[Rfam]
RNA sequence: AGCUCCGUGAUUAUACGCCUGAUUUGGGCGGUAUACGCUAUUCUGAUUAAAACAUGAGCGGAUAUAUGAAGAAAAUGAGAGCU
Numbered sequence: 001a002g003c004u005c006c007g008u009g010a011u012u013a014u015a016c017g018c019c020u021g022a023u024u025u026g027g028g029c030g031g032u033a034u035a036c037g038c039u040a041u042u043c044u045g046a047u048u049a050a051a052a053c054a055u056g057a058g059c060g061g062a063u064a065u066a067u068g069a070a071g072a073a074a075a076u077g078a079g080a081g082c083u
Base pairs, nucleotide, nucleotide: 001083002082003081004080005079
Source information:
Small nucleolar RNA U54: an 83-nucleotide RNA from Manihot esculenta. The organism belongs to Manihot, within Eukaryota. About the family: U54 is a C/D box small nucleolar RNA, which acts as a methylation guide for 18S ribosomal RNA in plants. A reference for the family is Chen et al. (2003), "The high diversity of snoRNAs in plants: identification and comparative study of 120 snoRNA genes from Oryza sativa", Nucleic Acids Res.